[Rfam]
RNA sequence: UGAUUGCAAACUGGUGGUGGGCUCGCUGAGGCGGCCUUGACCAGUCAUGUCCACAAGGGACGAAAGACCAAGCCGCCCGAAAGUUUCGAGGCGGCUUUUUU
Numbered sequence: 001u002g003a004u005u006g007c008a009a010a011c012u013g014g015u016g017g018u019g020g021g022c023u024c025g026c027u028g029a030g031g032c033g034g035c036c037u038u039g040a041c042c043a044g045u046c047a048u049g050u051c052c053a054c055a056a057g058g059g060a061c062g063a064a065a066g067a068c069c070a071a072g073c074c075g076c077c078c079g080a081a082a083g084u085u086u087c088g089a090g091g092c093g094g095c096u097u098u099u100u101u
Stems, first nucleotide, its partner, number of pairs: 011044005017038001019037004024033003048062004070097008078088003
RNA: RcsR1 sRNA